[Rfam]
RNA sequence: GCUGCUCGAAACUUUGCACACCUCUUCGUGGUGAGCAGCAGGCAACGAUCUUAUGGUCGGCUAAGAAUGCAGAG
Numbered sequence: 001g002c003u004g005c006u007c008g009a010a011a012c013u014u015u016g017c018a019c020a021c022c023u024c025u026u027c028g029u030g031g032u033g034a035g036c037a038g039c040a041g042g043c044a045a046c047g048a049u050c051u052u053a054u055g056g057u058c059g060g061c062u063a064a065g066a067a068u069g070c071a072g073a074g
Base pairs, nucleotide, nucleotide: 001039002038003037004036005035006034007033020032021031022030046059047058048057049056050055
HDV ribozyme from F. prausnitzii: a 74-nucleotide RNA from Lacrimispora saccharolytica.
For this family Rfam cites "Widespread occurrence of self-cleaving ribozymes" (Webb et al., Science, 2009).
Pairs were carried over by alignment from the consensus structure, which is taken from published work.